A member of the RNA family "Purine riboswitch aptamer" from Weizmannia acidilactici, 101 nucleotides long. The base pairs follow the family's consensus structure, which is taken from published work. The organism belongs to Heyndrickxia, within Bacteria.
RNA sequence: UACAAAGUUGAAUACAACCCUCAUAUAUAAUGGGAAUAUGGCCCAUACGUCUCUACCCGGUUACCGUAAAUAACCGGACUAUGAGGGAAAGUGGAAAUUGG
Numbered sequence: 001u002a003c004a005a006a007g008u009u010g011a012a013u014a015c016a017a018c019c020c021u022c023a024u025a026u027a028u029a030a031u032g033g034g035a036a037u038a039u040g041g042c043c044c045a046u047a048c049g050u051c052u053c054u055a056c057c058c059g060g061u062u063a064c065c066g067u068a069a070a071u072a073a074c075c076g077g078a079c080u081a082u083g084a085g086g087g088a089a090a091g092u093g094g095a096a097a098u099u100g101g
Base pairs, nucleotide, nucleotide: 018087019086020085021084022083023082024081025080030046031045032044033043034042057077058076059075060074061073062072063071